Source information: Rfam assigns this 117-nucleotide sequence from Nonomuraea glycinis to the family "Actinobacteria sRNA Ms_IGR-7". The literature on the family includes a 2013 paper in RNA by Li et al., "Identification of small RNAs in Mycobacterium smegmatis using heterologous Hfq". By type it is a small RNA. It scores 80 bits against the family's covariance model. The base pairs follow the family's consensus structure.
RNA sequence: ACGAGGUGCCCUUCUGAUCUGGCUGAUUGAAGCGUAGAGAACUCCAAUCCUCCCAGGUCAAGGGGCACCUCGCCUCAUUUCACGACAUACGCAUCAGAUUUCAAGCCGUGGAUCCAG
Numbered sequence: 001a002c003g004a005g006g007u008g009c010c011c012u013u014c015u016g017a018u019c020u021g022g023c024u025g026a027u028u029g030a031a032g033c034g035u036a037g038a039g040a041a042c043u044c045c046a047a048u049c050c051u052c053c054c055a056g057g058u059c060a061a062g063g064g065g066c067a068c069c070u071c072g073c074c075u076c077a078u079u080u081c082a083c084g085a086c087a088u089a090c091g092c093a094u095c096a097g098a099u100u101u102c103a104a105g106c107c108g109u110g111g112a113u114c115c116a117g
Stems, first nucleotide, its partner, number of pairs: 002072012015060003019056004025049003029045001031043002097114002100112004